[Rfam]
Rfam assigns this 154-nucleotide RNA from Hydrogenibacillus schlegelii to the family "c-di-AMP riboswitch aptamer (ydaO/yuaA leader)".
RNA sequence: AAGCAAAGACGGCCUAAUCUCGGCGGAUGCCGGGAGCGGGGGACCCGAUCUUUUGGGGCUAAUCCCGACGAUAGGCGUCGGGAGGGAUGAGUCAGACGCAUUCCCUGCCAUCCUGCCCGUCAGCUAACCCCGUCGGCUAAUGCAGGGAAGUCUC
Numbered sequence: 001a002a003g004c005a006a007a008g009a010c011g012g013c014c015u016a017a018u019c020u021c022g023g024c025g026g027a028u029g030c031c032g033g034g035a036g037c038g039g040g041g042g043a044c045c046c047g048a049u050c051u052u053u054u055g056g057g058g059c060u061a062a063u064c065c066c067g068a069c070g071a072u073a074g075g076c077g078u079c080g081g082g083a084g085g086g087a088u089g090a091g092u093c094a095g096a097c098g099c100a101u102u103c104c105c106u107g108c109c110a111u112c113c114u115g116c117c118c119g120u121c122a123g124c125u126a127a128c129c130c131c132g133u134c135g136g137c138u139a140a141u142g143c144a145g146g147g148a149a150g151u152c153u154c
Base pairs, nucleotide, nucleotide: 011138012137013136014135018035019034020033021032022031023030024029036133037132038131039130040129041128046055047054056118057117058116064082065081066080067079085113086112087111088110